The record is a 176-nucleotide sequence, which matches "Clostridiales-1 RNA" in Rfam.
RNA sequence: UGUAAGCCAAGGGAACAAAAGUGCAGGUGCUGUUCGUGCUUGCACGAUAAGGCAUCUGACUUUGGUUCCCGCCAAAAACAUGAAGAAGAAGCGAUUUGCAUCGCAAAUCUGCGGAUUCUGAAUGUUUUUAGAAUUGCGGGAGCAGCGUAGCUGCGGAGCAAUUCGUUGGCUUACCA
Numbered sequence: 001u002g003u004a005a006g007c008c009a010a011g012g013g014a015a016c017a018a019a020a021g022u023g024c025a026g027g028u029g030c031u032g033u034u035c036g037u038g039c040u041u042g043c044a045c046g047a048u049a050a051g052g053c054a055u056c057u058g059a060c061u062u063u064g065g066u067u068c069c070c071g072c073c074a075a076a077a078a079c080a081u082g083a084a085g086a087a088g089a090a091g092c093g094a095u096u097u098g099c100a101u102c103g104c105a106a107a108u109c110u111g112c113g114g115a116u117u118c119u120g121a122a123u124g125u126u127u128u129u130a131g132a133a134u135u136g137c138g139g140g141a142g143c144a145g146c147g148u149a150g151c152u153g154c155g156g157a158g159c160a161a162u163u164c165g166u167u168g169g170c171u172u173a174c175c176a
Base pairs, nucleotide, nucleotide: 001176002175003173004172005171006170007169012069013068014067015066018063019062020061024058025057026056027055028054029053030052031051033049034047035046036045037044038043074129075128076127077126078125079124080123081122084119085118086117087116091112092111093109094108095107096106097105098104099103131164132163133162134161135160136159137158142154143153144152145151
The sequence is in the family's curated seed alignment.